A member of the RNA family "permuted transfer-messenger RNA" from Sphingomonas tagetis, 214 nucleotides long. Rfam links the family to the GO term RNA catabolic process. Pairs were carried over by alignment from the consensus structure, which is taken from published work. On this family, see Mao et al., RNA Biol 2010: "Variations on the tmRNA gene". The family's RNA type in Rfam is non-coding RNA gene.

RNA sequence: GACGAUAAAUUGUGGCGUGCAAUAGAUGCAGCGGACCCGGGGGCAGUACCCGGCGGCUCCACCAUAAGGUGGUGUUCUUGGACACCGUUUCUGACGGGGCCGAACCAGGAUCGACGUGUGUUGAAAAGCGCUUCUUUCGUUCGGAAUGGGACCACCGCGACGGCCCAUACACACAAGUGCCAACGAUAACGAAGCACUCGCUAUUGCGGCGUAA
Number, nucleotide and partner (000 for none) at each position: 001g141002a140003c139004g138005a137006u000007a000008a000009a000010u000011u000012g000013u000014g000015g131016c130017g129018u128019g000020c000021a000022a000023u000024a000025g000026a000027u120028g119029c118030a000031g117032c116033g115034g000035a000036c000037c053038c052039g051040g050041g049042g000043g000044c000045a000046g000047u000048a000049c041050c040051c039052g038053g037054c102055g101056g100057c099058u098059c097060c096061a000062c000063c000064a000065u000066a000067a000068g000069g000070u000071g000072g000073u000074g000075u000076u000077c000078u000079u000080g000081g000082a000083c000084a000085c000086c000087g000088u000089u000090u000091c000092u000093g000094a000095c000096g060097g059098g058099g057100c056101c055102g054103a000104a000105c000106c000107a000108g000109g000110a000111u000112c000113g000114a000115c033116g032117u031118g029119u028120g027121u000122u000123g000124a000125a000126a000127a000128g018129c017130g016131c015132u000133u000134c000135u000136u000137u005138c004139g003140u002141u001142c157143g156144g155145a000146a000147u000148g000149g000150g000151a000152c000153c000154a000155c144156c143157g142158c000159g000160a000161c000162g000163g000164c000165c000166c000167a000168u000169a000170c000171a000172c000173a000174c000175a000176a000177g000178u000179g000180c000181c000182a000183a000184c000185g000186a000187u000188a000189a000190c000191g000192a000193a000194g000195c000196a000197c000198u000199c000200g000201c000202u000203a000204u000205u000206g000207c000208g000209g000210c000211g000212u000213a000214a000